This 114-nucleotide RNA from Ameiurus melas belongs to the Rfam family "Potassium channel RNA editing signal". By type it is a cis-regulatory element.
RNA sequence: GUAGGAUAUGGAGAUAUGGUUCCGACCACCAUUGGGGGUAAAAUCGUCGGAUCGUUGUGUGCCAUCGCUGGCGUCUUGACCAUCGCUCUUCCAGUCCCCGUCAUCGUGUCCAAC
Numbered sequence: 001g002u003a004g005g006a007u008a009u010g011g012a013g014a015u016a017u018g019g020u021u022c023c024g025a026c027c028a029c030c031a032u033u034g035g036g037g038g039u040a041a042a043a044u045c046g047u048c049g050g051a052u053c054g055u056u057g058u059g060u061g062c063c064a065u066c067g068c069u070g071g072c073g074u075c076u077u078g079a080c081c082a083u084c085g086c087u088c089u090u091c092c093a094g095u096c097c098c099c100g101u102c103a104u105c106g107u108g109u110c111c112a113a114c
Base pairs, nucleotide, nucleotide: 001114002113004111005110007108008107009106010105011104013102014101015100018097019096021094037077038076040074049063050062
This family represents a group of sequences related to the human potassium channel Kv1.1 hairpin element which directs the efficient modification of an adenosine to inosine by an adenosine deaminase acting on RNA (ADAR). The ADAR modification causes an isoleucine/valine recoding event which lies in the ion-conducting pore of the potassium channel. It is thought that this editing event targets the process of fast inactivation and allows a more rapid recovery from inactivation at negative potentials.
The family's consensus secondary structure is taken from published work.